[Rfam]
RNA sequence: UCCAAAAGUUGUUAGGUCUGAUUGGGUAGUAGGACCCAACGCUAUUGGGUCCUACUAGGAGACAGAACCCAACGUUUCUUUCCUCCUCUUCUAUCACCAGCACCCUUUGAAA
Numbered sequence: 001u002c003c004a005a006a007a008g009u010u011g012u013u014a015g016g017u018c019u020g021a022u023u024g025g026g027u028a029g030u031a032g033g034a035c036c037c038a039a040c041g042c043u044a045u046u047g048g049g050u051c052c053u054a055c056u057a058g059g060a061g062a063c064a065g066a067a068c069c070c071a072a073c074g075u076u077u078c079u080u081u082c083c084u085c086c087u088c089u090u091c092u093a094u095c096a097c098c099a100g101c102a103c104c105c106u107u108u109g110a111a112a
Stems, first nucleotide, its partner, number of pairs: 001110002004107002008103002011101003015097001019093002024088003028084002032052008064079004
Dot-bracket structure: ((.((..((.(((.(...((...(((.((..((((((((.....))))))))...........((((........))))...)).)))...))...).)))))..)).))..
MIR474 microRNA precursor family: a 112-nucleotide RNA from Populus trichocarpa. The family has 11 seed sequences and 69 matches in Rfam 15.1.